This 100-nucleotide RNA sequence from Firmicutes bacterium CAG:103 belongs to the Rfam family "SAM riboswitch aptamer (S box leader)".
The base pairs follow the family's consensus structure, which is taken from published work.
A search with the family's covariance model found it, with a score of 77 bits.
Rfam's curators write: The SAM riboswitch is found upstream of a number of genes which code for proteins involved in methionine or cysteine biosynthesis in Gram-positive bacteria.
RNA sequence: GCCUUAUCAAGAGUGGCGGAGGGACCGGCCCUGUGAAGCCCGACAACCUGCAGAAACCUGCAAGGUGCCAAAUCCGGCGGUGCAAAUCGAGAGAUGAGGA
Numbered sequence: 001g002c003c004u005u006a007u008c009a010a011g012a013g014u015g016g017c018g019g020a021g022g023g024a025c026c027g028g029c030c031c032u033g034u035g036a037a038g039c040c041c042g043a044c045a046a047c048c049u050g051c052a053g054a055a056a057c058c059u060g061c062a063a064g065g066u067g068c069c070a071a072a073u074c075c076g077g078c079g080g081u082g083c084a085a086a087u088c089g090a091g092a093g094a095u096g097a098g099g100a
Stems, first nucleotide, its partner, number of pairs: 002099007013041001015040003021031003025077004042069001044067002047065002049062004073092001078089004